[Rfam]
RNA sequence: AUGGUGCGUCCGUACAUGGUCGAUCCCUCGACCGGUGCCCAGGCAGCCGAUGGUCUUCAAGGCUGCGCUGCGAGUCAUCGCAGUGACUGCGCCAGUCCGCUUCGCAUCGCUCGCCGCGGACGCUCAUCCCCACCGGAUGACGAUGC
Dot-bracket structure: ..........(((.(..((((((....)))))))))).....((((((...[[[[.....))))))(((((((....)))))))]]]]...........................(((.....((((((.....))))))...)))
Numbered sequence: 001a002u003g004g005u006g007c008g009u010c011c012g013u014a015c016a017u018g019g020u021c022g023a024u025c026c027c028u029c030g031a032c033c034g035g036u037g038c039c040c041a042g043g044c045a046g047c048c049g050a051u052g053g054u055c056u057u058c059a060a061g062g063c064u065g066c067g068c069u070g071c072g073a074g075u076c077a078u079c080g081c082a083g084u085g086a087c088u089g090c091g092c093c094a095g096u097c098c099g100c101u102u103c104g105c106a107u108c109g110c111u112c113g114c115c116g117c118g119g120a121c122g123c124u125c126a127u128c129c130c131c132a133c134c135g136g137a138u139g140a141c142g143a144u145g146c
Stems, first nucleotide, its partner, number of pairs: 011037003015034001018033006043066006052088004067084007116146003124140006